[Rfam]
RNA sequence: AUGCUAGUCUUUUGUCAACAAGCCAUCCAUGGCUCUUGAAAAGCAUAGGGGGCUUGGAGUGAGGGAUUAAGUCCCUUUGAUCUCUCACUCCAAAAUUUCGAACAGUUUGCCUGUGCUUAUAGCCAUUGGCUAUGCUAAUCAUCGAAGCUGCCCUGAUAAAGAGAAGCAUCGUUUGAAGACAAAGCAUAGUGUUUUGGUUAAUGCCUGCAGGUAGACCGGCAAGUCACAGAACGGCACCAGACUCGGUUAUGAGUCU
Dot-bracket structure: .......................................................(((((..........................))))).............((((((.............(((..........................................................................))).......)))))).......................(((((......))))).

Record summary
Early nodulin 40: a 256-nucleotide RNA sequence from Ricinus communis. It is annotated as a non-coding RNA gene. A reference for the family is Gultyaev and Roussis (2007), "Identification of conserved secondary structures and expansion segments in enod40 RNAs reveals new enod40 homologues in plants", Nucleic Acids Res. Its family is annotated with nodulation in the Gene Ontology. The organism belongs to Ricinus, within Eukaryota.